[Rfam]
RNA sequence: AGCGCGACGAGAUCGACGCCGCGGGUGACCACCAGGUAAUCCCGAAUGGCGAUGCCGUGCCGGUUCUC
Numbered sequence: 001a002g003c004g005c006g007a008c009g010a011g012a013u014c015g016a017c018g019c020c021g022c023g024g025g026u027g028a029c030c031a032c033c034a035g036g037u038a039a040u041c042c043c044g045a046a047u048g049g050c051g052a053u054g055c056c057g058u059g060c061c062g063g064u065u066c067u068c
Base pairs, nucleotide, nucleotide: 005062006061008059009058011030013028016026017025035056036055037054038053040052041051043049
Dot-bracket structure: ....((.((.(.(..((.......)).).)....((((.((.(.....).)))))).)).))......
About this RNA
A member of the RNA family "ASdes TB sRNA" from Mycolicibacterium fortuitum, 68 nucleotides long. The family has 26 seed sequences and 1,192 matches in Rfam 15.1. NCBI's taxonomy places the organism under Bacteria, Bacillati, Actinomycetes, Mycobacteriaceae, Mycobacterium (subgen. Mycolicibacterium).